RNA sequence: GGCGAGUAAACUCUGUACAAUUCAGACCGAUGAAACAUUGUGCAGAGU
Numbered sequence: 001g002g003c004g005a006g007u008a009a010a011c012u013c014u015g016u017a018c019a020a021u022u023c024a025g026a027c028c029g030a031u032g033a034a035a036c037a038u039u040g041u042g043c044a045g046a047g048u
Stems, first nucleotide, its partner, number of pairs: 011047005017041003